[Rfam]
RNA sequence: UUUUGAGGUGAUGAUAAUUGUUCGGGAUUUUCAAUAUGUCCAUUUAUAACAAUCAGACUACAAUUAUCUGAUCGAAC
Dot-bracket structure: .(((((.................................................................))))).

Background
Small nucleolar RNA Z155: a 77-nucleotide RNA from Kingdonia uniflora. NCBI's taxonomy places the organism under Eukaryota, Streptophyta, Tracheophyta, Magnoliopsida, Kingdonia. For this family Rfam cites "The high diversity of snoRNAs in plants: identification and comparative study of 120 snoRNA genes from Oryza sativa" (Chen et al., Nucleic Acids Res, 2003). The pairing is the family consensus, mapped onto this sequence. By type it is a C/D-box small nucleolar RNA. It scores 45 bits against the family's covariance model.